Shown here is a 350-nucleotide sequence from Scaptodrosophila lebanonensis, a member of the family "Nuclear RNase P". Pairs were carried over by alignment from the consensus structure, which is taken from published work. The organism belongs to Scaptodrosophila, within Eukaryota.
RNA sequence: UCAGUGACAAUCUAGCAUCUGGGGCACACACAACGAGUAUCAGAUUACUCACAUCUAUUGCCCCGGGAAGGUCUGAGAAUUGGUCAAAGCUCCUCUGUUGUUGUAACAACAUUCAAAUGCUGAAAGGUGUUUGUGUGUCAUGGGCUUCAUUUCCUAGCAGGAAACUUGUGUGAUUACAAGGCGAAAGUACCAGAAAAGCUGCAUCCUAGCGUUGCCCUCGCGAUCGCUGAUCGUUUGACUGCCGCUUGCAAUGCAUUGAAAUCUUUCGUGACCAGCAAUUUUAGUGCGAUGUGCUUGCUGCUUUGUCCUCACGGACAGGCAGAACUCAAUUCAGACUAAUCUGUGACUGA
Numbered sequence: 001u002c003a004g005u006g007a008c009a010a011u012c013u014a015g016c017a018u019c020u021g022g023g024g025c026a027c028a029c030a031c032a033a034c035g036a037g038u039a040u041c042a043g044a045u046u047a048c049u050c051a052c053a054u055c056u057a058u059u060g061c062c063c064c065g066g067g068a069a070g071g072u073c074u075g076a077g078a079a080u081u082g083g084u085c086a087a088a089g090c091u092c093c094u095c096u097g098u099u100g101u102u103g104u105a106a107c108a109a110c111a112u113u114c115a116a117a118u119g120c121u122g123a124a125a126g127g128u129g130u131u132u133g134u135g136u137g138u139c140a141u142g143g144g145c146u147u148c149a150u151u152u153c154c155u156a157g158c159a160g161g162a163a164a165c166u167u168g169u170g171u172g173a174u175u176a177c178a179a180g181g182c183g184a185a186a187g188u189a190c191c192a193g194a195a196a197a198g199c200u201g202c203a204u205c206c207u208a209g210c211g212u213u214g215c216c217c218u219c220g221c222g223a224u225c226g227c228u229g230a231u232c233g234u235u236u237g238a239c240u241g242c243c244g245c246u247u248g249c250a251a252u253g254c255a256u257u258g259a260a261a262u263c264u265u266u267c268g269u270g271a272c273c274a275g276c277a278a279u280u281u282u283a284g285u286g287c288g289a290u291g292u293g294c295u296u297g298c299u300g301c302u303u304u305g306u307c308c309u310c311a312c313g314g315a316c317a318g319g320c321a322g323a324a325c326u327c328a329a330u331u332c333a334g335a336c337u338a339a340u341c342u343g344u345g346a347c348u349g350a
Base pairs, nucleotide, nucleotide: 001350002349003348004347007344008343009342012297014295015294016293017292018291021064022063023062024061025060035050036049037048038047039046073334074333075332076331077330082273083272084271085270150164151163152162153161154160165180166179167178168177169176170175181269182268183267184266185265186264187263201254202253203252298322299321300320301319302318303317
The family's RNA type in Rfam is ribozyme. Ribonuclease P (RNase P) is a ubiquitous endoribonuclease, found in archaea, bacteria and eukarya as well as chloroplasts and mitochondria. Its best characterised activity is the generation of mature 5'-ends of tRNAs by cleaving the 5'-leader elements of precursor-tRNAs.